[Rfam]
RNA sequence: GGCUGGUCCAAAGGUAGUGAGUUAUUUCAAUUGAUUGUUCACAGUCAGUUAUAGAUUGGACUCCGUGUUCUACUCUUCCCUUCUCACUACUACACUUGACUAGUUCUA
Dot-bracket structure: ((((((((.((..((((((((......................(..((.....................))..)........))))))...))..))))))))))...

Shown here is a 108-nucleotide RNA sequence from Heterocephalus glaber, a member of the family "Y RNA". Rfam describes the family as follows. Y RNAs are components of the Ro ribonucleoprotein particle (Ro RNP), in association with Ro60 and La proteins. The Y RNAs and Ro60 and La proteins are well conserved, but the function of the Ro RNP is not known.